[Rfam]
Nucleotides: 141
Stems, first nucleotide, its partner, number of pairs: 001141008011029005020126004031111001032103011116133005
Number, partner (000 for none) and nucleotide at each position: 001141u002140a003139u004138a005137u006136u007135u008134g009000a010000g011029g012028a013027u014026a015025g016000a017000a018000c019000a020126g021125g022124c023123a024000g025015c026014u027013a028012u029011c030000a031111c032103a033102c034101c035100u036099u037098a038097u039096a040095u041094u042093g043000u044000a045000a046000a047000a048000u049000g050000u051000u052000c053000c054000a055000u056000g057000c058000u059000c060000g061000g062000u063000u064000u065000u066000c067000u068000a069000u070000g071000a072000u073000g074000g075000a076000a077000a078000g079000u080000a081000a082000c083000g084000c085000a086000a087000g088000a089000u090000g091000g092000u093042c094041a095040a096039u097038a098037u099036a100035a101034g102033g103032u104000c105000u106000u107000a108000c109000a110000a111031g112000a113000g114000a115000u116133g117132u118131a119130g120129g121000a122000g123023u124022g125021u126020c127000g128000c129120c130119c131118u132117a133116c134008c135007a136006a137005a138004u139003a140002u141001a